[Rfam]
RNA: mir-2 microRNA precursor family
Organism: Photinus pyralis
RNA sequence: CAACGCAUCAAUUUGGUUGUGAAUUCUUGUUUCUUUAAGAUAUCACAGCCACUUUGAUGAGCUUGG
Numbered sequence: 001c002a003a004c005g006c007a008u009c010a011a012u013u014u015g016g017u018u019g020u021g022a023a024u025u026c027u028u029g030u031u032u033c034u035u036u037a038a039g040a041u042a043u044c045a046c047a048g049c050c051a052c053u054u055u056g057a058u059g060a061g062c063u064u065g066g
Stems, first nucleotide, its partner, number of pairs: 006059006014051009025042001027040001